Rfam assigns this 117-nucleotide RNA from Podarcis lilfordi to the family "Vault RNA".
On this family, see Stadler et al., Mol Biol Evol 2009: "Evolution of Vault RNAs".
Taxonomically the source falls in Podarcis (Eukaryota, Sauria, Squamata, Lacertibaenia).
A search with the family's covariance model found it, with a score of 36 bits.
The base pairs follow the family's consensus structure, which is taken from published work.
From the family's description: This family of RNAs are found as part of the enigmatic vault ribonucleoprotein complex. The complex consists of a major vault protein (MVP), two minor vault proteins (VPARP and TEP1), and several small untranslated RNA molecules.
[Rfam]
RNA sequence: GAGCCAGCUCAGCCCAGCAGUUCCAUUGACCAAAGCAUUGCUUAGAUCCCCUAAUUAUUAUUAUUAUUAUAAUUGCUUCCAGCGGUUUGAGACCUGUGGGCACUGCCCGGCUAUAUA
Numbered sequence: 001g002a003g004c005c006a007g008c009u010c011a012g013c014c015c016a017g018c019a020g021u022u023c024c025a026u027u028g029a030c031c032a033a034a035g036c037a038u039u040g041c042u043u044a045g046a047u048c049c050c051c052u053a054a055u056u057a058u059u060a061u062u063a064u065u066a067u068u069a070u071a072a073u074u075g076c077u078u079c080c081a082g083c084g085g086u087u088u089g090a091g092a093c094c095u096g097u098g099g100g101c102a103c104u105g106c107c108c109g110g111c112u113a114u115a116u117a
Stems, first nucleotide, its partner, number of pairs: 002112004007107001012101004017097004026090004